[Rfam]
RNA: FMN riboswitch aptamer (RFN element)
RNA sequence: UGUAUCCUUCGGGGCAGGGUGAAAUUCCCGACCGGCGGUGAUGAAGCGAUGCGCUUCUCAGCCCGCGAGCCGUAUAGGCACGAUCCGGUGCGAUUCCGGAGCCGACAGUAUAGUCUGGAUGGGAGAAGGAUCAC
Numbered sequence: 001u002g003u004a005u006c007c008u009u010c011g012g013g014g015c016a017g018g019g020u021g022a023a024a025u026u027c028c029c030g031a032c033c034g035g036c037g038g039u040g041a042u043g044a045a046g047c048g049a050u051g052c053g054c055u056u057c058u059c060a061g062c063c064c065g066c067g068a069g070c071c072g073u074a075u076a077g078g079c080a081c082g083a084u085c086c087g088g089u090g091c092g093a094u095u096c097c098g099g100a101g102c103c104g105a106c107a108g109u110a111u112a113g114u115c116u117g118g119a120u121g122g123g124a125g126a127a128g129g130a131u132c133a134c
Stems, first nucleotide, its partner, number of pairs: 004131007017029003031114002033104002035066004061102002071078001084100005106117003